[Rfam]
RNA sequence: CACAAUGUCAUAGGCUCCUCAAGGUUGGUCGGCUCAUCCCCGUGGAAGGGGGUGAGAGCUUUGUCAACACAUGAUGUGGUUUCGCUCAUGCUCCAGUUCGGCCUGUUUCUGAUCGCUGGCCUCUCGCUGAUCGUGACGAUCGUAAAGCACAUGAUUGACAAUCAGAACAAAAAGAAAUGACCUCCCUUGUGCUCGCCAGCGCGGGAGGUCAUUUCUACGUAAUUUACACCUGAGCCGAUCCCCGGAGGGGGAUGACAUUGAGCCGACCGUUGGUGUUCUCAGCACCGGCG
Numbered sequence: 001c002a003c004a005a006u007g008u009c010a011u012a013g014g015c016u017c018c019u020c021a022a023g024g025u026u027g028g029u030c031g032g033c034u035c036a037u038c039c040c041c042g043u044g045g046a047a048g049g050g051g052g053u054g055a056g057a058g059c060u061u062u063g064u065c066a067a068c069a070c071a072u073g074a075u076g077u078g079g080u081u082u083c084g085c086u087c088a089u090g091c092u093c094c095a096g097u098u099c100g101g102c103c104u105g106u107u108u109c110u111g112a113u114c115g116c117u118g119g120c121c122u123c124u125c126g127c128u129g130a131u132c133g134u135g136a137c138g139a140u141c142g143u144a145a146a147g148c149a150c151a152u153g154a155u156u157g158a159c160a161a162u163c164a165g166a167a168c169a170a171a172a173a174g175a176a177a178u179g180a181c182c183u184c185c186c187u188u189g190u191g192c193u194c195g196c197c198a199g200c201g202c203g204g205g206a207g208g209u210c211a212u213u214u215c216u217a218c219g220u221a222a223u224u225u226a227c228a229c230c231u232g233a234g235c236c237g238a239u240c241c242c243c244g245g246a247g248g249g250g251g252a253u254g255a256c257a258u259u260g261a262g263c264c265g266a267c268c269g270u271u272g273g274u275g276u277u278c279u280c281a282g283c284a285c286c287g288g289c290g
Base pairs, nucleotide, nucleotide: 001262003260004259005258007256008255009254011252013236014235015234016233017232018191020189021188022187023186024185027182028181029180030179034055035054036053037052038051039050040049041048063159064158065157066156067155076091077090078089101150201220202219203218239250240249241248268290269289270288271287272286273285274284275283276282277281